[Rfam]
RNA sequence: GGCGUGCCACGGCCGCCUGAGCUAAGAACAUAACAAACCGAAAAGGCGCAGAUAUCUGCGCCUUUUUU
Numbered sequence: 001g002g003c004g005u006g007c008c009a010c011g012g013c014c015g016c017c018u019g020a021g022c023u024a025a026g027a028a029c030a031u032a033a034c035a036a037a038c039c040g041a042a043a044a045g046g047c048g049c050a051g052a053u054a055u056c057u058g059c060g061c062c063u064u065u066u067u068u
Base pairs, nucleotide, nucleotide: 004017006013007012041066042065043064044063045062046061047060048059049058050057051056

This 68-nucleotide RNA sequence belongs to the Rfam family "Salmonella enterica sRNA STnc40". Pairs were carried over by alignment from the consensus structure, which was predicted with LocARNA. The family's RNA type in Rfam is small RNA.